[Rfam]
RNA: mir-8517 microRNA precursor family
RNA sequence: AUAAAGAACGUUUUAGCUAUUUAACUGUUUUGUCCCUCUCAGGCAAAGAGCAAUUUUUUUCUAUGACAGAGAGGGACAAAACAGUUCAUAAGCUAAAACGUCCUAUAAC
Numbered sequence: 001a002u003a004a005a006g007a008a009c010g011u012u013u014u015a016g017c018u019a020u021u022u023a024a025c026u027g028u029u030u031u032g033u034c035c036c037u038c039u040c041a042g043g044c045a046a047a048g049a050g051c052a053a054u055u056u057u058u059u060u061c062u063a064u065g066a067c068a069g070a071g072a073g074g075g076a077c078a079a080a081a082c083a084g085u086u087c088a089u090a091a092g093c094u095a096a097a098a099c100g101u102c103c104u105a106u107a108a109c
Stems, first nucleotide, its partner, number of pairs: 002107002005104002011098008021088001023086006029070006049060002052057001